Bacterial small signal recognition particle RNA: a 94-nucleotide RNA from Eggerthella sp. YY7918. Pairs were carried over by alignment from the consensus structure, which is taken from published work.

[Rfam]
RNA sequence: GGAUGGGCUGGGGCGGCGCCAUGUUCCGAACCUGGUCAGGUCCGGAAGGAAGCAGCCAUAAGGGACCGCUGACGAGCGCCCCUGCCUAUCCGGG
Numbered sequence: 001g002g003a004u005g006g007g008c009u010g011g012g013g014c015g016g017c018g019c020c021a022u023g024u025u026c027c028g029a030a031c032c033u034g035g036u037c038a039g040g041u042c043c044g045g046a047a048g049g050a051a052g053c054a055g056c057c058a059u060a061a062g063g064g065a066c067c068g069c070u071g072a073c074g075a076g077c078g079c080c081c082c083u084g085c086c087u088a089u090c091c092g093g094g
Stems, first nucleotide, its partner, number of pairs: 003089006010082004014076001017074002020071002023066005033058004041050003
The family's RNA type in Rfam is non-coding RNA gene.